[Rfam]
int-alpA RNA: a 67-nucleotide RNA sequence from Sphingomonas parapaucimobilis.
The family's RNA type in Rfam is small RNA.
NCBI's taxonomy places the organism under Bacteria, Alphaproteobacteria, Sphingomonadales, Sphingomonas, Sphingomonas parapaucimobilis.
Rfam's curators write: Acidobacteria (1 example), Planctomycetes (1 example), Proteobacteria.
The family's consensus secondary structure is taken from published work.

RNA sequence: GGGGCGGCUAGGGUAGCUCCCGAACGGCUGGUUUCCGCCCAGCCUGCCGCCCCUUUCAUUAUGCGGA
Numbered sequence: 001g002g003g004g005c006g007g008c009u010a011g012g013g014u015a016g017c018u019c020c021c022g023a024a025c026g027g028c029u030g031g032u033u034u035c036c037g038c039c040c041a042g043c044c045u046g047c048c049g050c051c052c053c054u055u056u057c058a059u060u061a062u063g064c065g066g067a
Base pairs, nucleotide, nucleotide: 001053002052003051004050005049006048007047008046011021012020013019027043028042029041030040031039034067035066036065037064038063